The record is a 77-nucleotide sequence from Coptotermes formosanus, which matches "mir-252 microRNA precursor family" in Rfam.
Taxonomically the source falls in Coptotermes (Eukaryota, Protostomia, Mandibulata, Dictyoptera).
The family is grouped with related families in Rfam's "mir-252 microRNA precursor family".

RNA sequence: UCCCAUUGAUAAGCACUUGAGCAGCAGGAGAAAAUUACUUUAACACACUCCUGCGGCACUAGUACUUAGGAACGGAA
Numbered sequence: 001u002c003c004c005a006u007u008g009a010u011a012a013g014c015a016c017u018u019g020a021g022c023a024g025c026a027g028g029a030g031a032a033a034a035u036u037a038c039u040u041u042a043a044c045a046c047a048c049u050c051c052u053g054c055g056g057c058a059c060u061a062g063u064a065c066u067u068a069g070g071a072a073c074g075g076a077a
Stems, first nucleotide, its partner, number of pairs: 001077001003075002006072002010068004015063003019059001024054007